RNA sequence: AGGCAGCCUCUUCACCGUUACAGUGGCAUUGGAGGUGUUGCAUUGCUCGGAUAGUAAACCUUUUGCUCUUCAGAUUAGCUGAGAGGGAGGCUCUGGCUUCCCUCCCUGAAGCUGGUCUAGUAGUCUUAAGAACAUC
Numbered sequence: 001a002g003g004c005a006g007c008c009u010c011u012u013c014a015c016c017g018u019u020a021c022a023g024u025g026g027c028a029u030u031g032g033a034g035g036u037g038u039u040g041c042a043u044u045g046c047u048c049g050g051a052u053a054g055u056a057a058a059c060c061u062u063u064u065g066c067u068c069u070u071c072a073g074a075u076u077a078g079c080u081g082a083g084a085g086g087g088a089g090g091c092u093c094u095g096g097c098u099u100c101c102c103u104c105c106c107u108g109a110a111g112c113u114g115g116u117c118u119a120g121u122a123g124u125c126u127u128a129a130g131a132a133c134a135u136c
Stems, first nucleotide, its partner, number of pairs: 002039004007035002009032002015026003060130003065125001067123001072118005078112003083104008